Rfam assigns this 96-nucleotide RNA from endosymbiont of Riftia pachyptila to the family "t44 RNA". Lineage of the source: Bacteria > Pseudomonadota > Gammaproteobacteria > sulfur-oxidizing symbionts > endosymbiont of Riftia pachyptila. Rfam's curators write: This family consists of a number of bacterial RNA genes of between 135 and 170 bases in length. The t44 gene has been identified in several species of enteric bacteria but homologs have also been identified in Pseudomonas and Coxiella species. The t44 gene is found between the map and rpsB genes in all species in the full alignment apart from Shigella flexneri. The function of this RNA is unknown. By type it is a small RNA. It is one of the family's seed sequences.
[Rfam]
RNA sequence: CGCAGUCCACCAAAUCCGCACAUACAUCGACACAUGUACCGGGGUGCUCAGCAGCAUUGCUGCGGGGUCGGGGCAUGGGGUGUAUGGAGGCCUAAC
Numbered sequence: 001c002g003c004a005g006u007c008c009a010c011c012a013a014a015u016c017c018g019c020a021c022a023u024a025c026a027u028c029g030a031c032a033c034a035u036g037u038a039c040c041g042g043g044g045u046g047c048u049c050a051g052c053a054g055c056a057u058u059g060c061u062g063c064g065g066g067g068u069c070g071g072g073g074c075a076u077g078g079g080g081u082g083u084a085u086g087g088a089g090g091c092c093u094a095a096c
Stems, first nucleotide, its partner, number of pairs: 021086008033077005039071003046068004
Dot-bracket structure: ....................((((((((....(((((.(((....((((...............))))))).))))).))))))))..........